L31-Firmicutes ribosomal protein leader: a 32-nucleotide RNA sequence.
RNA sequence: CUAUGACUUGAAUAGGAGUCAUGGCAAAGGAG
Numbered sequence: 001c002u003a004u005g006a007c008u009u010g011a012a013u014a015g016g017a018g019u020c021a022u023g024g025c026a027a028a029g030g031a032g
Stems, first nucleotide, its partner, number of pairs: 001024008